This 127-nucleotide RNA sequence from Hevea brasiliensis belongs to the Rfam family "Small nucleolar RNA snoR74". A search with the family's covariance model found it, with a score of 86 bits. Pairs were carried over by alignment from the consensus structure, which was predicted with WAR. By type it is an H/ACA-box small nucleolar RNA.
RNA sequence: GAAAAAGCAGGGUCUUGUUGCCUCUUGUGAACGGGCUCUGGUAAACUUCGGGAAAUUUAAUGUCAUUGCUAUUGGGUGAACCUCUGUAGUUUAUUGUGACGAUGGUUCAGUAAAUGAUGGCACAUCA
Numbered sequence: 001g002a003a004a005a006a007g008c009a010g011g012g013u014c015u016u017g018u019u020g021c022c023u024c025u026u027g028u029g030a031a032c033g034g035g036c037u038c039u040g041g042u043a044a045a046c047u048u049c050g051g052g053a054a055a056u057u058u059a060a061u062g063u064c065a066u067u068g069c070u071a072u073u074g075g076g077u078g079a080a081c082c083u084c085u086g087u088a089g090u091u092u093a094u095u096g097u098g099a100c101g102a103u104g105g106u107u108c109a110g111u112a113a114a115u116g117a118u119g120g121c122a123c124a125u126c127a
Base pairs, nucleotide, nucleotide: 005048006047007046011037012036014035015034016033017032062121063120064119065118066117067116068115070113077109078108079107080106081105082104